[Rfam]
RNA sequence: GGUGAUAAACGCGCUCGUAAUAAGCGGACUGGACCCGGGGGCGGUACCCGGCGGCUCCACCAAUACCCUUGCAGCAGGGAUCAUGGGGCCGAAACAGGAUCGACAGACGUCUAAAGGGGUUAUGCUUUCACCCGGUGAGAUACCACCGUUAUCGGUUCAAAACUUACAGUAGCCAAUACCAACGCUGCUCCCCGUGCUCUCGCCGCGUAA
Numbered sequence: 001g002g003u004g005a006u007a008a009a010c011g012c013g014c015u016c017g018u019a020a021u022a023a024g025c026g027g028a029c030u031g032g033a034c035c036c037g038g039g040g041g042c043g044g045u046a047c048c049c050g051g052c053g054g055c056u057c058c059a060c061c062a063a064u065a066c067c068c069u070u071g072c073a074g075c076a077g078g079g080a081u082c083a084u085g086g087g088g089c090c091g092a093a094a095c096a097g098g099a100u101c102g103a104c105a106g107a108c109g110u111c112u113a114a115a116g117g118g119g120u121u122a123u124g125c126u127u128u129c130a131c132c133c134g135g136u137g138a139g140a141u142a143c144c145a146c147c148g149u150u151a152u153c154g155g156u157u158c159a160a161a162a163c164u165u166a167c168a169g170u171a172g173c174c175a176a177u178a179c180c181a182a183c184g185c186u187g188c189u190c191c192c193c194g195u196g197c198u199c200u201c202g203c204c205g206c207g208u209a210a
Stems, first nucleotide, its partner, number of pairs: 001132005013120004025109002029106003035051005052091007133148004
Background:
This 210-nucleotide sequence from Phaeovulum vinaykumarii belongs to the Rfam family "permuted transfer-messenger RNA". Lineage of the source: Bacteria > Pseudomonadota > Alphaproteobacteria > Paracoccaceae > Phaeovulum. From the family's description: Bacterial tmRNA, also known as 10Sa RNA or SsrA, is named for its dual tRNA and mRNA-like properties. Its role is to liberate the mRNA from a stalled ribosome. Rfam classes the family as a non-coding RNA gene.